A member of the RNA family "U5 spliceosomal RNA" from Perca fluviatilis, 119 nucleotides long. Lineage of the source: Eukaryota > Deuterostomia > Teleostei > Percinae > Perca. Rfam classes the family as a spliceosomal small nuclear RNA.
RNA sequence: UUACUCUGGUUUCUUUUCAUAACGCGAACAAGUCUUUCGCCUUUACUAAAGACUUCCGUGGAGAGGAACACAAAAUGAGUUGAACCUAUUUUUGGUGGGCUCUGCCAUUUGGCUGAGCC
Number, nucleotide and partner (000 for none) at each position: 001u000002u000003a080004c079005u078006c077007u000008g000009g069010u068011u067012u066013c065014u064015u063016u062017u061018c060019a059020u000021a000022a000023c000024g000025c000026g000027a000028a000029c000030a055031a054032g053033u052034c051035u050036u049037u048038c000039g000040c000041c000042u000043u000044u000045a000046c000047u000048a037049a036050a035051g034052a033053c032054u031055u030056c000057c000058g000059u019060g018061g017062a016063g015064a014065g013066g012067a011068a010069c009070a000071c000072a000073a000074a000075a000076u000077g006078a005079g004080u003081u000082g000083a000084a000085c000086c000087u000088a000089u000090u000091u000092u000093u000094g000095g000096u000097g119098g000099g118100c117101u116102c115103u000104g113105c000106c000107a000108u000109u000110u000111g000112g000113c104114u000115g102116a101117g100118c099119c097